[Rfam]
RNA sequence: UAGAAAUGGGGGCUCCUUUCAGGCCGAAACAGCUCAUCAGCUUCUACGAAUCUGCUUUGGAGUGAAGGGAGCUCCCAAUUCUA
Numbered sequence: 001u002a003g004a005a006a007u008g009g010g011g012g013c014u015c016c017u018u019u020c021a022g023g024c025c026g027a028a029a030c031a032g033c034u035c036a037u038c039a040g041c042u043u044c045u046a047c048g049a050a051u052c053u054g055c056u057u058u059g060g061a062g063u064g065a066a067g068g069g070a071g072c073u074c075c076c077a078a079u080u081c082u083a
Base pairs, nucleotide, nucleotide: 007077008076009075010074011073012072013071014070015069016068017067018066021063024060025059026058027057028056
MIR319 microRNA precursor family: an 83-nucleotide RNA from Camphora micrantha. The base pairs follow the family's consensus structure, which was predicted with RNAalifold. The family has 11 seed sequences and 168 matches in Rfam 15.1. It scores 66 bits against the family's covariance model.